About this RNA: Shown here is a 50-nucleotide RNA sequence, a member of the family "L31-Gammaproteobacteria ribosomal protein leader". Its Rfam clan is "Ribosomal Protein L31 Leader clan".

RNA sequence: CGUGUGGUGUCCGGCUCCGGGCCUGGAUAGCGACACGGCCUUUGAGAGGU
Numbered sequence: 001c002g003u004g005u006g007g008u009g010u011c012c013g014g015c016u017c018c019g020g021g022c023c024u025g026g027a028u029a030g031c032g033a034c035a036c037g038g039c040c041u042u043u044g045a046g047a048g049g050u
Stems, first nucleotide, its partner, number of pairs: 001037005007031002011026004015021001